[Rfam]
RNA sequence: CUAAAAUGGGCAAAAUACGCCGCCUGCAAAAAAUGAAAGCUAACCGACGUUAAGAGCGUCGGUUAUUUUUUUGC
Numbered sequence: 001c002u003a004a005a006a007u008g009g010g011c012a013a014a015a016u017a018c019g020c021c022g023c024c025u026g027c028a029a030a031a032a033a034u035g036a037a038a039g040c041u042a043a044c045c046g047a048c049g050u051u052a053a054g055a056g057c058g059u060c061g062g063u064u065a066u067u068u069u070u071u072u073g074c
Base pairs, nucleotide, nucleotide: 010020011019041065042064043063044062045061046060047059048058049057
The family of this 74-nucleotide RNA from Atlantibacter hermannii is "Enterobacterial sRNA STnc240". It is annotated as a small RNA. Taxonomically the source falls in Atlantibacter hermannii (Bacteria, Pseudomonadati, Pseudomonadota, Atlantibacter). It scores 75 bits against the family's covariance model. Pairs were carried over by alignment from the consensus structure, which was predicted with WAR.